[Rfam]
RNA: mir-992 microRNA precursor family
Organism: Drosophila melanogaster
RNA sequence: AUUUUCCCAAGUGCCUGGUAUCAGCAAAGUGUUAUUUUUUAUGUUUAUGUAAAGUACACGUUUCUGGUACUAAGUACUUCGAGAAA
Numbered sequence: 001a002u003u004u005u006c007c008c009a010a011g012u013g014c015c016u017g018g019u020a021u022c023a024g025c026a027a028a029g030u031g032u033u034a035u036u037u038u039u040u041a042u043g044u045u046u047a048u049g050u051a052a053a054g055u056a057c058a059c060g061u062u063u064c065u066g067g068u069a070c071u072a073a074g075u076a077c078u079u080c081g082a083g084a085a086a
Stems, first nucleotide, its partner, number of pairs: 002085005009079006016072009026062002029059004034055005
Dot-bracket structure: .(((((..((((((.(((((((((.((.((((.(((((............))))))))).)).))))))))).)))))).))))).